[Rfam]
RNA sequence: CGCCCCGUCAUUGGGGAGUAGCCUCUCCUCCACCUCCGGAGGAGGCAUAUGUCAACACACUUGGCCCACAGGCCAUGGCAUAUGCGGUCCCAUACUUGGCAAGACCUUUGACCACAGCGCCGCCGAUUUUAGGCCGGGGGCGUGCUGUGGUCAUUCGUCCGUGCCCGGCCUGG
Numbered sequence: 001c002g003c004c005c006c007g008u009c010a011u012u013g014g015g016g017a018g019u020a021g022c023c024u025c026u027c028c029u030c031c032a033c034c035u036c037c038g039g040a041g042g043a044g045g046c047a048u049a050u051g052u053c054a055a056c057a058c059a060c061u062u063g064g065c066c067c068a069c070a071g072g073c074c075a076u077g078g079c080a081u082a083u084g085c086g087g088u089c090c091c092a093u094a095c096u097u098g099g100c101a102a103g104a105c106c107u108u109u110g111a112c113c114a115c116a117g118c119g120c121c122g123c124c125g126a127u128u129u130u131a132g133g134c135c136g137g138g139g140g141c142g143u144g145c146u147g148u149g150g151u152c153a154u155u156c157g158u159c160c161g162u163g164c165c166c167g168g169c170c171u172g173g
Stems, first nucleotide, its partner, number of pairs: 026043003045085010062075005090173003
RNA: Manganese Mn2+ riboswitch aptamer (yybP-ykoY)